[Rfam]
RNA: Guanidine-I riboswitch aptamer
RNA sequence: UCUUAGGGGUGCUAGGGUUCCGGUUCGCGAGAACGACUGGUCCGAGAGCAGCCCGGCACCGUCCGGCGCGGUCUCAAGACGCGCUGCAAUGGUGCUACACGGCGGGACAAAAGCCCGGGAGAU
Numbered sequence: 001u002c003u004u005a006g007g008g009g010u011g012c013u014a015g016g017g018u019u020c021c022g023g024u025u026c027g028c029g030a031g032a033a034c035g036a037c038u039g040g041u042c043c044g045a046g047a048g049c050a051g052c053c054c055g056g057c058a059c060c061g062u063c064c065g066g067c068g069c070g071g072u073c074u075c076a077a078g079a080c081g082c083g084c085u086g087c088a089a090u091g092g093u094g095c096u097a098c099a100c101g102g103c104g105g106g107a108c109a110a111a112a113g114c115c116c117g118g119g120a121g122a123u
Base pairs, nucleotide, nucleotide: 007054008053009052010050011049012048015043016042020040021039022037023034024033025032026031055096056095057094058093059092060091061090062089098118100121104116105115106114